[Rfam]
A member of the RNA family "mir-1 microRNA precursor family" from Diabrotica balteata, 76 nucleotides long.
RNA sequence: CCUCAGGUUCCGUACUUCCUUACUAUCCCAUAGUGAUAUUAUACGUAUGGAAUGUAAAGAAGUAUGGAGCAUCGAG
Numbered sequence: 001c002c003u004c005a006g007g008u009u010c011c012g013u014a015c016u017u018c019c020u021u022a023c024u025a026u027c028c029c030a031u032a033g034u035g036a037u038a039u040u041a042u043a044c045g046u047a048u049g050g051a052a053u054g055u056a057a058a059g060a061a062g063u064a065u066g067g068a069g070c071a072u073c074g075a076g
Base pairs, nucleotide, nucleotide: 007070008069009068010067011066012065013064014063015062016061017060018059020057021056022055023054028050029049030048031047032046
Gene Ontology terms of the family: RISC complex and miRNA-mediated post-transcriptional gene silencing. This family represents the microRNA (miRNA) mir-1 family. miRNAs are transcribed as ~70nt precursors (modelled here) and subsequently processed by the Dicer enzyme to give a ~22nt product. In this case the mature sequence comes from the 3' arm of the precursor. The match comes from Rfam's covariance-model search (68 bits). The family has 137 seed sequences and 4,474 matches in Rfam 15.1.